This 82-nucleotide RNA sequence from Cynoglossus semilaevis belongs to the Rfam family "mir-219 microRNA precursor family".
RNA sequence: CUAGCGGUUGAUUGUCCAAACGCAAUUCUUGAGUAAACCCAGAUUAAACCCCCAAGAAUUGUGUAUGGACAUCUGUUGCUGC
Numbered sequence: 001c002u003a004g005c006g007g008u009u010g011a012u013u014g015u016c017c018a019a020a021c022g023c024a025a026u027u028c029u030u031g032a033g034u035a036a037a038c039c040c041a042g043a044u045u046a047a048a049c050c051c052c053c054a055a056g057a058a059u060u061g062u063g064u065a066u067g068g069a070c071a072u073c074u075g076u077u078g079c080u081g082c
Stems, first nucleotide, its partner, number of pairs: 002081006010073003014070005021063011

Taxonomically the source falls in Cynoglossus (Eukaryota, Neoteleostei, Pleuronectiformes, Cynoglossinae).